[Rfam]
RNA sequence: GUCAGAAACCUCAGUCUAAAGGCAUGAGGCUUGAAAGAGAAAUCUAGCAAGCCGUUCUGACCAGCCUCAGCACUUCAAGUGCUAUGUUUUUUGAGUCACGAUACCGGAGGAUACGUAGCCAGUCUUCCGCUCUAUCGCUAGUGGUUAAACAGUCUUAAGGUCACUGAGACAGUGCUUCUAGCCUAACAAGCUCUUAAAACUUUGGCGAGGCUAACAUUAC
Numbered sequence: 001g002u003c004a005g006a007a008a009c010c011u012c013a014g015u016c017u018a019a020a021g022g023c024a025u026g027a028g029g030c031u032u033g034a035a036a037g038a039g040a041a042a043u044c045u046a047g048c049a050a051g052c053c054g055u056u057c058u059g060a061c062c063a064g065c066c067u068c069a070g071c072a073c074u075u076c077a078a079g080u081g082c083u084a085u086g087u088u089u090u091u092u093g094a095g096u097c098a099c100g101a102u103a104c105c106g107g108a109g110g111a112u113a114c115g116u117a118g119c120c121a122g123u124c125u126u127c128c129g130c131u132c133u134a135u136c137g138c139u140a141g142u143g144g145u146u147a148a149a150c151a152g153u154c155u156u157a158a159g160g161u162c163a164c165u166g167a168g169a170c171a172g173u174g175c176u177u178c179u180a181g182c183c184u185a186a187c188a189a190g191c192u193c194u195u196a197a198a199a200c201u202u203u204g205g206c207g208a209g210g211c212u213a214a215c216a217u218u219a220c
Base pairs, nucleotide, nucleotide: 001061002060003059004058005057006056007055010029011028012026013025015022016021030051031050032049033048064206065205066204069083070082071081072080073079086200087199088198089197090196093193094192095191096190101135102134105129106128107127108126109125110124111123112122116213117212118211119210120209137182138181139180140179141178143176144175145174149173150172152170153169154168155167156166157165
RNA: HNH endonuclease-associated RNA and ORF (HEARO) RNA
Organism: Nodularia spumigena